Rfam assigns this 92-nucleotide sequence from Morus notabilis to the family "Small nucleolar RNA snoR27". Taxonomically the source falls in Morus (Eukaryota, Streptophytina, Embryophyta, Euphyllophyta). Rfam 15.1 lists 649 matches to the family in 212 species.
RNA sequence: GUUGGAUCGAUGAUGUUUAACAAUAUACUGCGUUAUCUAUCUGCAAUUUCCUUCAAGGAAUUGAAGAAGACUAUAUGUUACUGAGAUCUGAU
Numbered sequence: 001g002u003u004g005g006a007u008c009g010a011u012g013a014u015g016u017u018u019a020a021c022a023a024u025a026u027a028c029u030g031c032g033u034u035a036u037c038u039a040u041c042u043g044c045a046a047u048u049u050c051c052u053u054c055a056a057g058g059a060a061u062u063g064a065a066g067a068a069g070a071c072u073a074u075a076u077g078u079u080a081c082u083g084a085g086a087u088c089u090g091a092u
Base pairs, nucleotide, nucleotide: 001092002091003090004089005088006087007086
Dot-bracket structure: (((((((..............................................................................)))))))
Annotation
Its Rfam clan is "snR68 clan".